[Rfam]
A member of the RNA family "SAM/SAH riboswitch aptamer" from Octadecabacter antarcticus, 49 nucleotides long. Gene Ontology terms of the family: regulation of gene expression and S-adenosylmethionine metabolic process. The literature on the family includes a 2019 paper in Nucleic Acids Res by Weickhmann et al., "The structure of the SAM/SAH-binding riboswitch".
RNA sequence: ACUCGUCCGCAACGGCUUCCUGACGCGGAUCGACAUUUAAACUGGAGCA
Numbered sequence: 001a002c003u004c005g006u007c008c009g010c011a012a013c014g015g016c017u018u019c020c021u022g023a024c025g026c027g028g029a030u031c032g033a034c035a036u037u038u039a040a041a042c043u044g045g046a047g048c049a
Stems, first nucleotide, its partner, number of pairs: 004032002006029005013022002015048003019045002